Shown here is a 364-nucleotide part of an RNA from Scardovia inopinata, a member of the family "Bacterial large subunit ribosomal RNA". Pairs were carried over by alignment from the consensus structure, which is taken from published work. On this family, see Yusupov et al., Science 2001: "Crystal structure of the ribosome at 5.5 A resolution".
[Rfam]
RNA sequence: CGAGUGAAUCCUGGUCAAGGAACUCGGCAAAUUACUCCCGUGCCUUCGGUAUAAGGGAGACCCUGCUGGGUGAUCUAAUGUACGUUAGGGAGCUUGACGGGGUGGCACAGACUAGGGGGUAGCGACUGUUUACCAAAAACACAGGUGCAUGCGAAGACGUAAGUCGCGGUAUAUGCACUGACGCCUGCCCGGUGCCGGAAGGUUAAGAGGAUCCAUUAACCCUGUGGGUGACGUGGUGAAUUUAAGCCCCGGUAAACGGCGGUGGUAACUAUAACCAUCCUAAGGUAGCGAAAUUCCUUGUCGGGUAAGUUCCGACCUGCACGAAUGGCGUAACGACUUCCCCACUGUCUCGACCAGGACCUCG
Numbered sequence: 001c002g003a004g005u006g007a008a009u010c011c012u013g014g015u016c017a018a019g020g021a022a023c024u025c026g027g028c029a030a031a032u033u034a035c036u037c038c039c040g041u042g043c044c045u046u047c048g049g050u051a052u053a054a055g056g057g058a059g060a061c062c063c064u065g066c067u068g069g070g071u072g073a074u075c076u077a078a079u080g081u082a083c084g085u086u087a088g089g090g091a092g093c094u095u096g097a098c099g100g101g102g103u104g105g106c107a108c109a110g111a112c113u114a115g116g117g118g119g120u121a122g123c124g125a126c127u128g129u130u131u132a133c134c135a136a137a138a139a140c141a142c143a144g145g146u147g148c149a150u151g152c153g154a155a156g157a158c159g160u161a162a163g164u165c166g167c168g169g170u171a172u173a174u175g176c177a178c179u180g181a182c183g184c185c186u187g188c189c190c191g192g193u194g195c196c197g198g199a200a201g202g203u204u205a206a207g208a209g210g211a212u213c214c215a216u217u218a219a220c221c222c223u224g225u226g227g228g229u230g231a232c233g234u235g236g237u238g239a240a241u242u243u244a245a246g247c248c249c250c251g252g253u254a255a256a257c258g259g260c261g262g263u264g265g266u267a268a269c270u271a272u273a274a275c276c277a278u279c280c281u282a283a284g285g286u287a288g289c290g291a292a293a294u295u296c297c298u299u300g301u302c303g304g305g306u307a308a309g310u311u312c313c314g315a316c317c318u319g320c321a322c323g324a325a326u327g328g329c330g331u332a333a334c335g336a337c338u339u340c341c342c343c344a345c346u347g348u349c350u351c352g353a354c355c356a357g358g359a360c361c362u363c364g
Stems, first nucleotide, its partner, number of pairs: 001364004009359008018350003035059005044049001060103006074089006104108001116343004121338002123335002127141003144179008152169001156165003182330004187260003192257002194253005201248003207242002213236004219229002261279006280284001290317001300316006